[Rfam]
RNA sequence: CGCUCACGCACAGCGGUUCUUCACUGGCAAGCUUUAUGUUCCUGUACACAUGCUAAAGCUGCCAGCUGAAGAACUGCUGCGGUCGGC
Numbered sequence: 001c002g003c004u005c006a007c008g009c010a011c012a013g014c015g016g017u018u019c020u021u022c023a024c025u026g027g028c029a030a031g032c033u034u035u036a037u038g039u040u041c042c043u044g045u046a047c048a049c050a051u052g053c054u055a056a057a058g059c060u061g062c063c064a065g066c067u068g069a070a071g072a073a074c075u076g077c078u079g080c081g082g083u084c085g086g087c
Stems, first nucleotide, its partner, number of pairs: 006083002011079002017073006026063003030060007
Record summary: This 87-nucleotide sequence from Betta splendens belongs to the Rfam family "mir-22 microRNA precursor family". Taxonomically the source falls in Betta (Eukaryota, Eurypterygia, Anabantiformes, Macropodinae). Its family is annotated with RISC complex and miRNA-mediated post-transcriptional gene silencing in the Gene Ontology. The family's consensus secondary structure was predicted with RNAalifold.